[Rfam]
RNA sequence: GGCCUAAACCAUUCAUUUUGUGUGGCAUGGCUCGAAAGACCCAAGCAUGGUACUGAACCCCGCGUUCAGCGACUCAUGCUUGGGCUAUGCCGGGAAACCGGUAUGGGGCCGCAAGGCCU
Numbered sequence: 001g002g003c004c005u006a007a008a009c010c011a012u013u014c015a016u017u018u019u020g021u022g023u024g025g026c027a028u029g030g031c032u033c034g035a036a037a038g039a040c041c042c043a044a045g046c047a048u049g050g051u052a053c054u055g056a057a058c059c060c061c062g063c064g065u066u067c068a069g070c071g072a073c074u075c076a077u078g079c080u081u082g083g084g085c086u087a088u089g090c091c092g093g094g095a096a097a098c099c100g101g102u103a104u105g106g107g108g109c110c111g112c113a114a115g116g117c118c119u
Base pairs, nucleotide, nucleotide: 001032002031003030004029009025010024011023012022014020015019040084041083042082043081044080045079046078047077048076049075053069054068055067056066057065058064086105087104088103089102090101091100092099093098106119107118108117109116110115
The family of this 119-nucleotide sequence is "LOOT RNA".
Rfam's curators put it in the seed alignment.
The base pairs follow the family's consensus structure, which is taken from published work.